[Rfam]
RNA: c-di-GMP-II-GCG riboswitch aptamer
Organism: Deinococcus peraridilitoris
RNA sequence: AAAUUUCACGGAAGCGUUGAAGCCUGCCUCAGUACACGGUCACCUUAGGGCAGGUGGAGCCAAUGGUGAGCCCGGCCAGAGGAGUA
Numbered sequence: 001a002a003a004u005u006u007c008a009c010g011g012a013a014g015c016g017u018u019g020a021a022g023c024c025u026g027c028c029u030c031a032g033u034a035c036a037c038g039g040u041c042a043c044c045u046u047a048g049g050g051c052a053g054g055u056g057g058a059g060c061c062a063a064u065g066g067u068g069a070g071c072c073c074g075g076c077c078a079g080a081g082g083a084g085u086a
Stems, first nucleotide, its partner, number of pairs: 002085001004083003010077002014060002022055008038073002040069005